RNA sequence: GGAUCAAUGAUGACUUCCGUAUACAUUCCUUGGAAAUCUGAACAAAAUGAGUGAAAACUCCUUACCGUCUCACUCAUCGAACUGAGGUCC
Numbered sequence: 001g002g003a004u005c006a007a008u009g010a011u012g013a014c015u016u017c018c019g020u021a022u023a024c025a026u027u028c029c030u031u032g033g034a035a036a037u038c039u040g041a042a043c044a045a046a047a048u049g050a051g052u053g054a055a056a057a058c059u060c061c062u063u064a065c066c067g068u069c070u071c072a073c074u075c076a077u078c079g080a081a082c083u084g085a086g087g088u089c090c
Stems, first nucleotide, its partner, number of pairs: 001090005024053005030045003
RNA: Small nucleolar RNA SNORD116
Organism: Chrysochloris asiatica